The family of this 586-nucleotide part of an RNA from Saccharopolyspora elongata is "Bacterial large subunit ribosomal RNA".
RNA sequence: CGCGCGGCAGGACGGAAAGACCCCGGGACCUUUACUAUAGCUUGGUAUUGGUGUUUGGUUCGGCUUGUGUAGGAUAGGUGGGAGACUGUGAAGCAUUCACGCUAGUGGGUGUGGAGUCGUUGGUGAAAUACCACUCUGGUCGUUCCGGGCAUCUAACUCGGGUCCGUGAUCCGGAUCGGGGACAGUGCCUGGUGGGUAGUUUAACUGGGGCGGUUGCCUCCUAAAGGGUAACGGAGGCGCCCAAAGGUUCCCUCAGCCUGGUUGGCAAUCAGGUGUUGAGUGUAAGUGUAUAAGGGAGCUUGACUGUGAGACUGACGGGUCGAGCAGGUGCGAAAGCAGGGACUAGUGAUCCGGCACUGGCUGGUGGAAGCGGUGUCGCUCAACGGAUAAAAGGUACCCCGGGGAUAACAGGCUGAUCUUGCCCAAGAGUCCAUAUCGACGGCAUGGUUUGGCACCUCGAUGUCGGCUCGUCGCAUCCUGGGGCUGGAGUUGGUCCCAAGGGUUGGGCUGUUCGCCCAUUAAAGCGGCACGCGAGCUGGGUUUAGAACGUCGUGAGACAGUUCGGUCCCUAUCCGCCGCGCGCGUA
Numbered sequence: 001c002g003c004g005c006g007g008c009a010g011g012a013c014g015g016a017a018a019g020a021c022c023c024c025g026g027g028a029c030c031u032u033u034a035c036u037a038u039a040g041c042u043u044g045g046u047a048u049u050g051g052u053g054u055u056u057g058g059u060u061c062g063g064c065u066u067g068u069g070u071a072g073g074a075u076a077g078g079u080g081g082g083a084g085a086c087u088g089u090g091a092a093g094c095a096u097u098c099a100c101g102c103u104a105g106u107g108g109g110u111g112u113g114g115a116g117u118c119g120u121u122g123g124u125g126a127a128a129u130a131c132c133a134c135u136c137u138g139g140u141c142g143u144u145c146c147g148g149g150c151a152u153c154u155a156a157c158u159c160g161g162g163u164c165c166g167u168g169a170u171c172c173g174g175a176u177c178g179g180g181g182a183c184a185g186u187g188c189c190u191g192g193u194g195g196g197u198a199g200u201u202u203a204a205c206u207g208g209g210g211c212g213g214u215u216g217c218c219u220c221c222u223a224a225a226g227g228g229u230a231a232c233g234g235a236g237g238c239g240c241c242c243a244a245a246g247g248u249u250c251c252c253u254c255a256g257c258c259u260g261g262u263u264g265g266c267a268a269u270c271a272g273g274u275g276u277u278g279a280g281u282g283u284a285a286g287u288g289u290a291u292a293a294g295g296g297a298g299c300u301u302g303a304c305u306g307u308g309a310g311a312c313u314g315a316c317g318g319g320u321c322g323a324g325c326a327g328g329u330g331c332g333a334a335a336g337c338a339g340g341g342a343c344u345a346g347u348g349a350u351c352c353g354g355c356a357c358u359g360g361c362u363g364g365u366g367g368a369a370g371c372g373g374u375g376u377c378g379c380u381c382a383a384c385g386g387a388u389a390a391a392a393g394g395u396a397c398c399c400c401g402g403g404g405a406u407a408a409c410a411g412g413c414u415g416a417u418c419u420u421g422c423c424c425a426a427g428a429g430u431c432c433a434u435a436u437c438g439a440c441g442g443c444a445u446g447g448u449u450u451g452g453c454a455c456c457u458c459g460a461u462g463u464c465g466g467c468u469c470g471u472c473g474c475a476u477c478c479u480g481g482g483g484c485u486g487g488a489g490u491u492g493g494u495c496c497c498a499a500g501g502g503u504u505g506g507g508c509u510g511u512u513c514g515c516c517c518a519u520u521a522a523a524g525c526g527g528c529a530c531g532c533g534a535g536c537u538g539g540g541u542u543u544a545g546a547a548c549g550u551c552g553u554g555a556g557a558c559a560g561u562u563c564g565g566u567c568c569c570u571a572u573c574c575g576c577c578g579c580g581c582g583c584g585u586a
Stems, first nucleotide, its partner, number of pairs: 001582008010574003014569002022403006028395005034200004041192002044189004050153009061142005067136001077135005084118003093112008157180003161177006203215004216238006239384001241341002247299006253279002256274006280289002304327004310321003329338003352378007360371002412453003416450001417447002420444004427437002464539001465537004469531001470528005477502002480497006504518005545563004549558003
Taxonomically the source falls in Saccharopolyspora (Bacteria, Bacillati, Actinomycetes, Pseudonocardiales).